[Rfam]
RNA sequence: GAAAACAUUGGUGAGAAUCCAAUGCCCCGAAACCCUAAGGGUUCCUCCGGAAGGCUCGUCCGCGGAGGGUUAGUCAGGACCUAAGGCGAGGCUGAAAAGCGUAGUCGAUGGACAACGGGUUAAUAUUCCCGUACUGAUUUUGGAUUGUGCAGAGGGACGGAGUAGGCUAAGCCAGCCGGAUGUUGGUUACCGGUUGAAGCGUUCGAGGUUAUGAGGGACGGCGAAAACGUCCUGAGCUGAGGCGCGAGUACGAGGAGAUACGUCUCCGAAGUGGCUGAUGUCAUGCUUCCAAGAAAAGCUCUAAACACGUUAAUCCAAGAUUACCUGUACCCGAAACCGACACAGGUAGGGAGGUAGAGAAUACCAAGGGGCG
Numbered sequence: 001g002a003a004a005a006c007a008u009u010g011g012u013g014a015g016a017a018u019c020c021a022a023u024g025c026c027c028c029g030a031a032a033c034c035c036u037a038a039g040g041g042u043u044c045c046u047c048c049g050g051a052a053g054g055c056u057c058g059u060c061c062g063c064g065g066a067g068g069g070u071u072a073g074u075c076a077g078g079a080c081c082u083a084a085g086g087c088g089a090g091g092c093u094g095a096a097a098a099g100c101g102u103a104g105u106c107g108a109u110g111g112a113c114a115a116c117g118g119g120u121u122a123a124u125a126u127u128c129c130c131g132u133a134c135u136g137a138u139u140u141u142g143g144a145u146u147g148u149g150c151a152g153a154g155g156g157a158c159g160g161a162g163u164a165g166g167c168u169a170a171g172c173c174a175g176c177c178g179g180a181u182g183u184u185g186g187u188u189a190c191c192g193g194u195u196g197a198a199g200c201g202u203u204c205g206a207g208g209u210u211a212u213g214a215g216g217g218a219c220g221g222c223g224a225a226a227a228c229g230u231c232c233u234g235a236g237c238u239g240a241g242g243c244g245c246g247a248g249u250a251c252g253a254g255g256a257g258a259u260a261c262g263u264c265u266c267c268g269a270a271g272u273g274g275c276u277g278a279u280g281u282c283a284u285g286c287u288u289c290c291a292a293g294a295a296a297a298g299c300u301c302u303a304a305a306c307a308c309g310u311u312a313a314u315c316c317a318a319g320a321u322u323a324c325c326u327g328u329a330c331c332c333g334a335a336a337c338c339g340a341c342a343c344a345g346g347u348a349g350g351g352a353g354g355u356a357g358a359g360a361a362u363a364c365c366a367a368g369g370g371g372c373g
Base pairs, nucleotide, nucleotide: 006024007023008022009021010020011019025371026370027369028368033351034350035349036348039331040330044068045067046066047065048064049063053061054060075327076326077325078324080111081110085106086105087104089102091100092099093098115132116131117130118129119128135323136322137321138320139319140318141317142316143315144314145313146307147306151302152301153300154299159289160288161287162286165282166281167280170276171275172274173273174272175194176193177192178191179190195250196249199245200244201243202242206238207237212234214233215232216231217230219229220228254267255266256265257264258263337346338345353365354364355363356362

Rfam assigns this 373-nucleotide part of an RNA from Acaryochloris marina to the family "Bacterial large subunit ribosomal RNA".
A search with the family's covariance model found it, with a score of 2827 bits.
Taxonomically the source falls in Acaryochloris marina (Bacteria, Bacillati, Acaryochloridales, Acaryochloridaceae).